[Rfam]
RNA sequence: AAGCAUAGAGAACACCCAAGUGUGCUUUGUAGCUCCCUUGGCCUUUAAGUCGUGCUAGAUUAACGUUUGUAUUUCCCCUCUACGUUGGAAAUAUAAUUUACUUUACACGUAUUCAGAAAUACAGCACAAAA
Numbered sequence: 001a002a003g004c005a006u007a008g009a010g011a012a013c014a015c016c017c018a019a020g021u022g023u024g025c026u027u028u029g030u031a032g033c034u035c036c037c038u039u040g041g042c043c044u045u046u047a048a049g050u051c052g053u054g055c056u057a058g059a060u061u062a063a064c065g066u067u068u069g070u071a072u073u074u075c076c077c078c079u080c081u082a083c084g085u086u087g088g089a090a091a092u093a094u095a096a097u098u099u100a101c102u103u104u105a106c107a108c109g110u111a112u113u114c115a116g117a118a119a120u121a122c123a124g125c126a127c128a129a130a131a
Stems, first nucleotide, its partner, number of pairs: 003055004008050001014045001016041005022035001024033003057073002061069002079117003083109003087104003
RNA: Small nucleolar RNA SNORA22
Organism: Hymenochirus boettgeri